The record is a 91-nucleotide sequence from Orthoflavivirus gadgetsense, which matches "General Flavivirus exoribonuclease-resistant RNA element" in Rfam.

RNA sequence: GUGAGGGCUGUAGCAGCACAUCAGCAUCGGCUGAUGACGGGAAACGAUCGCUCCCGAUGCAGAACCUUACCAUAAACAAAUUUGUGAGAUC
Numbered sequence: 001g002u003g004a005g006g007g008c009u010g011u012a013g014c015a016g017c018a019c020a021u022c023a024g025c026a027u028c029g030g031c032u033g034a035u036g037a038c039g040g041g042a043a044a045c046g047a048u049c050g051c052u053c054c055c056g057a058u059g060c061a062g063a064a065c066c067u068u069a070c071c072a073u074a075a076a077c078a079a080a081u082u083u084g085u086g087a088g089a090u091c
Stems, first nucleotide, its partner, number of pairs: 002069005019036007040054003078090001081087001

The exoribonuclease-resistant RNA elements (xrRNA) are described throughout all groups of flaviviruses. Usually, each virus harbors two xrRNAs, xrRNA1 and xrRNA2, in the beginning of the 3' UTR. The formation of these stem-loops, especially xrRNA1, is vital to ensure resistance against XRN1 activity. The Y-shaped stem-loop is also termed SL II and SL IV, respectively. In order to function as xrRNA, the sequence downstream is needed as well, since the upper loop region forms a pseudoknot (PK) with the single-stranded region directly downstream to its respective hairpin. It is one of the family's seed sequences. The family's RNA type in Rfam is cis-regulatory element. The organism belongs to Orthoflavivirus gadgetsense, within Viruses.